[Rfam]
Shown here is an 88-nucleotide RNA sequence from Monodelphis domestica, a member of the family "Small nucleolar RNA SNORD70". The sequence is in the family's curated seed alignment. Gene Ontology terms of the family: RNA processing and nucleolus. Lineage of the source: Eukaryota > Amniota > Mammalia > Didelphinae > Monodelphis. The family's RNA type in Rfam is C/D-box small nucleolar RNA. Pairs were carried over by alignment from the consensus structure.
RNA sequence: UUUUGUUGUCAGUGAUGUACAUAUGUUGGAACUGAAUCUUAAGUGAUAUCAUUUACCAAUUCGUCACUACCACUGAGACAACACUGAA
Number, nucleotide and partner (000 for none) at each position: 001u088002u087003u086004u083005g082006u081007u080008g079009u078010c077011a000012g000013u000014g000015a000016u000017g000018u000019a000020c000021a000022u000023a000024u000025g000026u000027u000028g000029g000030a000031a000032c000033u000034g000035a000036a000037u000038c000039u000040u000041a000042a000043g000044u000045g000046a000047u000048a000049u000050c000051a000052u000053u000054u000055a000056c000057c000058a000059a000060u000061u000062c000063g000064u000065c000066a000067c000068u000069a000070c000071c000072a000073c000074u000075g000076a000077g010078a009079c008080a007081a006082c005083a004084c000085u000086g003087a002088a001
From the family's description: snoRNA HBII-234 belongs to the C/D family of snoRNAs. It is the human orthologue of the mouse MBII-234 and is predicted to guide 2'O-ribose methylation of the small 18S rRNA on position A512. It is hosted, together with HBII-95, by the core C/D box snoRNA protein encoding gene NOP5/NOP58. Rfam 15.1 lists 1,085 matches to the family in 579 species.